Shown here is a 186-nucleotide RNA sequence from Medicago truncatula, a member of the family "MIR2619 microRNA precursor family". The organism belongs to Medicago, within Eukaryota. The family's consensus secondary structure was predicted with RNAalifold.

RNA sequence: AAAUCACCCCCUAAGUAUUGACUUUUUUGCAGUUUUGGCACCCCAGACCAAUUUUGGCAAAGUCAAUACACACAUGGACGCCACUUGAAAAUAAAUACAUACGUGUGGCGUCCACGUCAGCUUUGACUUGGUCAAAAUUGGCAUGGGGCCAAAACUGCGAAAAAGUCAAUACUUAGCAGGCGGUUU
Numbered sequence: 001a002a003a004u005c006a007c008c009c010c011c012u013a014a015g016u017a018u019u020g021a022c023u024u025u026u027u028u029g030c031a032g033u034u035u036u037g038g039c040a041c042c043c044c045a046g047a048c049c050a051a052u053u054u055u056g057g058c059a060a061a062g063u064c065a066a067u068a069c070a071c072a073c074a075u076g077g078a079c080g081c082c083a084c085u086u087g088a089a090a091a092u093a094a095a096u097a098c099a100u101a102c103g104u105g106u107g108g109c110g111u112c113c114a115c116g117u118c119a120g121c122u123u124u125g126a127c128u129u130g131g132u133c134a135a136a137a138u139u140g141g142c143a144u145g146g147g148g149c150c151a152a153a154a155c156u157g158c159g160a161a162a163a164a165g166u167c168a169a170u171a172c173u174u175a176g177c178a179g180g181c182g183g184u185u186u
Base pairs, nucleotide, nucleotide: 001186002185004183005182007180008179012175013174014173015172016171017170018169019168020167021166022165023164024163025162026161027160028159029158030157031156032155033154034153035152036151037150038149041148042147043146044145045144072117073116075114076113077112078111079110080109081108082107